Source information: mir-301 microRNA precursor family: an 84-nucleotide RNA sequence from Ictidomys tridecemlineatus. The sequence is in the family's curated seed alignment. A reference for the family is Houbaviy et al. (2003), "Embryonic stem cell-specific MicroRNAs", Dev Cell. NCBI's taxonomy places the organism under Eukaryota, Eumetazoa, Dipnotetrapodomorpha, Eutheria, Ictidomys. The family's consensus secondary structure was predicted with WAR.
[Rfam]
RNA sequence: UGCUUACGAAUGCUCUGACUUUAUUGCACUACUGUAUUUGACAGCUAGCAGUGCAAUAGUAUUGUCAAAGCAUCUGAAAGCAGA
Numbered sequence: 001u002g003c004u005u006a007c008g009a010a011u012g013c014u015c016u017g018a019c020u021u022u023a024u025u026g027c028a029c030u031a032c033u034g035u036a037u038u039u040g041a042c043a044g045c046u047a048g049c050a051g052u053g054c055a056a057u058a059g060u061a062u063u064g065u066c067a068a069a070g071c072a073u074c075u076g077a078a079a080g081c082a083g084a
Stems, first nucleotide, its partner, number of pairs: 002081003007076002010073005016067004023057008034042001